[Rfam]
RNA sequence: GUCGGUAUAGCAAAGUGGUUACUGCGUUUGAUUUGAACAAGUAACAGCUUGUGAUAAAAUAUCAAAUUCCCUUCGGGAGCGUAGGUUCGAACCCUACUGCCGACG
Numbered sequence: 001g002u003c004g005g006u007a008u009a010g011c012a013a014a015g016u017g018g019u020u021a022c023u024g025c026g027u028u029u030g031a032u033u034u035g036a037a038c039a040a041g042u043a044a045c046a047g048c049u050u051g052u053g054a055u056a057a058a059a060u061a062u063c064a065a066a067u068u069c070c071c072u073u074c075g076g077g078a079g080c081g082u083a084g085g086u087u088c089g090a091a092c093c094c095u096a097c098u099g100c101c102g103a104c105g
Base pairs, nucleotide, nucleotide: 001104002103003102004101005100006099007098010025011024012023027066028065029064030063031062081097082096083095084094085093

A member of the RNA family "tRNA" from Rhizoctonia solani, 105 nucleotides long. The source organism's lineage runs through Eukaryota, Dikarya, Basidiomycota, Ceratobasidiaceae and Rhizoctonia solani AG-1. On this family, see Hou, Trends Biochem Sci 1993: "The tertiary structure of tRNA and the development of the genetic code". It is annotated as a transfer RNA.